[Rfam]
RNA sequence: UAUAUUUGCAGCCGAAUUGCCACCAUACAAUUCAUACAUAAAAAUCAUUAAAUAUAAUAUUGGCAUG
Numbered sequence: 001u002a003u004a005u006u007u008g009c010a011g012c013c014g015a016a017u018u019g020c021c022a023c024c025a026u027a028c029a030a031u032u033c034a035u036a037c038a039u040a041a042a043a044a045u046c047a048u049u050a051a052a053u054a055u056a057a058u059a060u061u062g063g064c065a066u067g
Stems, first nucleotide, its partner, number of pairs: 014033006